A member of the RNA family "t44 RNA" from Caviibacterium pharyngocola, 86 nucleotides long. This family consists of a number of bacterial RNA genes of between 135 and 170 bases in length. The t44 gene has been identified in several species of enteric bacteria but homologs have also been identified in Pseudomonas and Coxiella species. NCBI's taxonomy places the organism under Bacteria, Pseudomonadati, Pseudomonadota, Gammaproteobacteria, Caviibacterium. The base pairs follow the family's consensus structure, which was predicted with LocARNA.
[Rfam]
RNA sequence: AAUGAAUUAAUCAUAAAUCACACACAUAUCGUUAGGGUAAAUCGGGGUGCCAAACGGUCGAUUUGCUUGGUAUGUGGAGGCUAAAC
Numbered sequence: 001a002a003u004g005a006a007u008u009a010a011u012c013a014u015a016a017a018u019c020a021c022a023c024a025c026a027u028a029u030c031g032u033u034a035g036g037g038u039a040a041a042u043c044g045g046g047g048u049g050c051c052a053a054a055c056g057g058u059c060g061a062u063u064u065g066c067u068u069g070g071u072a073u074g075u076g077g078a079g080g081c082u083a084a085a086c
Base pairs, nucleotide, nucleotide: 023076024075025074026073027072028071029070030069036067037066038065039064040063041062042061043060044059049058050057051056